This 434-nucleotide RNA from Anodorhynchus hyacinthinus belongs to the Rfam family "Vertebrate telomerase RNA". The base pairs follow the family's consensus structure, which is taken from published work. Rfam links the family to the GO terms telomerase activity, telomerase catalytic core complex and telomere maintenance via telomerase. A reference for the family is Fragnet et al. (2005), "Comparative functional study of the viral telomerase RNA based on natural mutations", J Biol Chem. It is one of the family's seed sequences. NCBI's taxonomy places the organism under Eukaryota, Opisthokonta, Bilateria, Coelurosauria, Anodorhynchus. It is annotated as a non-coding RNA gene.
[Rfam]
RNA sequence: CGCGUGGCGGAUGGGGAGGCUCCAGUCUCACUAACCCUAAUGGCUGCCGCCGUGCUCCCCGCACCCGUCCGCUGUUUUAUUCGCUGACUUUCAGCGGACGGGGGGAGCCGCCUGGGGGGGAAGGGGUUUGCAAUCAAAAAACGUCAGCGACGGGUCUCCCCAGCCCAGCCCGCCCUGGGGUCUCCGUCCCCCCACGCAGCCGGGGGCCUGCCGCGGAGGCUCCCUCCGCCGCACUUCACGGAGGCCGCGGUCGGCCGGUGUCCGCCACUGCCGCCGCGAAGAGUUCGUCUCUGUCAGCCUCGGCGGCGGUGGGGAGCGAGAGGGCUCGUCCCCGCGCCGGGGACCCCAGCAGAGCAAAACGGAGCGGCGUCCUCGGCACAGCCGCCGCGCUUCCCUCAACCGUGGGAUGCGCGGACGGCGCCGCUUCGACACCC
Numbered sequence: 001c002g003c004g005u006g007g008c009g010g011a012u013g014g015g016g017a018g019g020c021u022c023c024a025g026u027c028u029c030a031c032u033a034a035c036c037c038u039a040a041u042g043g044c045u046g047c048c049g050c051c052g053u054g055c056u057c058c059c060c061g062c063a064c065c066c067g068u069c070c071g072c073u074g075u076u077u078u079a080u081u082c083g084c085u086g087a088c089u090u091u092c093a094g095c096g097g098a099c100g101g102g103g104g105g106a107g108c109c110g111c112c113u114g115g116g117g118g119g120g121a122a123g124g125g126g127u128u129u130g131c132a133a134u135c136a137a138a139a140a141a142c143g144u145c146a147g148c149g150a151c152g153g154g155u156c157u158c159c160c161c162a163g164c165c166c167a168g169c170c171c172g173c174c175c176u177g178g179g180g181u182c183u184c185c186g187u188c189c190c191c192c193c194a195c196g197c198a199g200c201c202g203g204g205g206g207c208c209u210g211c212c213g214c215g216g217a218g219g220c221u222c223c224c225u226c227c228g229c230c231g232c233a234c235u236u237c238a239c240g241g242a243g244g245c246c247g248c249g250g251u252c253g254g255c256c257g258g259u260g261u262c263c264g265c266c267a268c269u270g271c272c273g274c275c276g277c278g279a280a281g282a283g284u285u286c287g288u289c290u291c292u293g294u295c296a297g298c299c300u301c302g303g304c305g306g307c308g309g310u311g312g313g314g315a316g317c318g319a320g321a322g323g324g325c326u327c328g329u330c331c332c333c334g335c336g337c338c339g340g341g342g343a344c345c346c347c348a349g350c351a352g353a354g355c356a357a358a359a360c361g362g363a364g365c366g367g368c369g370u371c372c373u374c375g376g377c378a379c380a381g382c383c384g385c386c387g388c389g390c391u392u393c394c395c396u397c398a399a400c401c402g403u404g405g406g407a408u409g410c411g412c413g414g415a416c417g418g419c420g421c422c423g424c425u426u427c428g429a430c431a432c433c434c
Base pairs, nucleotide, nucleotide: 004173005172006171007166009165010164012162013161014160015159016158017157018156019155020154021153022152054108055107056106057105058104066100067099068098069097070096071095072094073093074092083148084147085146086145087144088143089141090140091139175349176348177347178346179345180344181343204331205330206329207328210325211324212323219317220316221315222314223313224312225311227305228304229303230302231301246278247277248276249275250274252273253272254271255270257266258265259264280292281291282290283289362426363425364424365423366422367421368420369419370418371417385414386413387412388411389410392407393406394405395404